The family of this 95-nucleotide RNA sequence is "Rhodo-rpoB RNA".

RNA sequence: CGAUCGGGAGGCUCCGUGAUGGGACGCGGGCGCCACGAAUUGAUCGAAAUCCAUCCUCUCGAAUGGCCAUGUUGCUGAAGCCCAUCAGCACUAUG
Numbered sequence: 001c002g003a004u005c006g007g008g009a010g011g012c013u014c015c016g017u018g019a020u021g022g023g024a025c026g027c028g029g030g031c032g033c034c035a036c037g038a039a040u041u042g043a044u045c046g047a048a049a050u051c052c053a054u055c056c057u058c059u060c061g062a063a064u065g066g067c068c069a070u071g072u073u074g075c076u077g078a079a080g081c082c083c084a085u086c087a088g089c090a091c092u093a094u095g
Stems, first nucleotide, its partner, number of pairs: 001046005010034003013030003017026002068095004073090005
Pairs were carried over by alignment from the consensus structure, which is taken from published work.